[Rfam]
RNA sequence: UCCAUCGUGAGGUGGAAUCUGAAGGAAGCCGGAUGUGGGAACAGACUAACCACGGGCAAAUCUUUGGUCUGACGAAUAGAAAUCUCAUAUAAGGUUAUGCAUGAGAGUAAGGCUGCCAACCAAGUCAAAGCUCAAUAACUAUACGGAAUCAUGCGUGAUAAAUGAGGCAGAUGGAUGGAGAGGAAGAAACGUGU
Numbered sequence: 001u002c003c004a005u006c007g008u009g010a011g012g013u014g015g016a017a018u019c020u021g022a023a024g025g026a027a028g029c030c031g032g033a034u035g036u037g038g039g040a041a042c043a044g045a046c047u048a049a050c051c052a053c054g055g056g057c058a059a060a061u062c063u064u065u066g067g068u069c070u071g072a073c074g075a076a077u078a079g080a081a082a083u084c085u086c087a088u089a090u091a092a093g094g095u096u097a098u099g100c101a102u103g104a105g106a107g108u109a110a111g112g113c114u115g116c117c118a119a120c121c122a123a124g125u126c127a128a129a130g131c132u133c134a135a136u137a138a139c140u141a142u143a144c145g146g147a148a149u150c151a152u153g154c155g156u157g158a159u160a161a162a163u164g165a166g167g168c169a170g171a172u173g174g175a176u177g178g179a180g181a182g183g184a185a186g187a188a189a190c191g192u193g194u
Base pairs, nucleotide, nucleotide: 001016002015003014004013005012006011057186061181062180063179064178065177066176067172068171069170070169071168083167084166085165086164087163088162094159095158096157098155099154100153101152102151103150104149105133106132107131108130111126112125113124114123
Notes
Shown here is a 194-nucleotide sequence from Roseburia inulinivorans, a member of the family "Group II catalytic intron D1-D4-3". The pairing is the family consensus, mapped onto this sequence. On this family, see Bonen and Vogel, Trends Genet 2001: "The ins and outs of group II introns".